[Rfam]
The family of this 179-nucleotide sequence from Dinoroseobacter shibae is "Ruegeria cis52 sRNA".
The family's RNA type in Rfam is small RNA.
RNA sequence: UGCGCAGGGCGUGUUUCAGCACGAUGUUGCGGAAGCUCACGCCCUUGAGCCGCGCGGUGCGGAUGUAUUGCGCGGUCAUGACCUCGGCCAUGGACGCCCGCGUCAUCCGCGCGAUGUAGCCCAUGCCGUAAAGCGCCAUGGUCAGCACCGGCAGGGUGAAGUUUUCCAGCGUGGCGUCC
Number, nucleotide and partner (000 for none) at each position: 001u000002g000003c000004g000005c140006a139007g000008g137009g136010c135011g134012u133013g000014u131015u130016u128017c000018a000019g126020c125021a124022c000023g000024a000025u000026g000027u000028u123029g122030c000031g120032g000033a000034a000035g000036c000037u000038c113039a000040c111041g110042c109043c000044c000045u000046u105047g104048a103049g000050c000051c100052g099053c000054g097055c075056g000057g073058u072059g071060c070061g069062g068063a000064u000065g000066u000067a000068u062069u061070g060071c059072g058073c057074g000075g055076u000077c000078a000079u000080g000081a000082c096083c000084u094085c093086g000087g000088c000089c000090a000091u000092g000093g085094a084095c000096g082097c054098c000099c052100g051101c000102g000103u048104c047105a046106u000107c000108c000109g042110c041111g040112c000113g038114a000115u000116g000117u000118a000119g000120c031121c000122c029123a028124u021125g020126c019127c000128g016129u000130a015131a014132a000133g012134c011135g010136c009137c008138a000139u006140g005141g000142u000143c000144a000145g179146c000147a177148c000149c174150g000151g172152c171153a000154g165155g164156g163157u000158g000159a000160a000161g000162u000163u156164u155165u154166c000167c000168a000169g000170c000171g152172u151173g000174g149175c000176g000177u147178c000179c145
The match comes from Rfam's covariance-model search (134 bits).
The family has 2 seed sequences and 277 matches in Rfam 15.1.
A reference for the family is Rivers et al. (2016), "Experimental Identification of Small Non-Coding RNAs in the Model Marine Bacterium Ruegeria pomeroyi DSS-3", Front Microbiol.
Taxonomically the source falls in Dinoroseobacter shibae (Bacteria, Rhodobacterales, Roseobacteraceae, Dinoroseobacter).
The base pairs follow the family's consensus structure, which was predicted with RNAfold.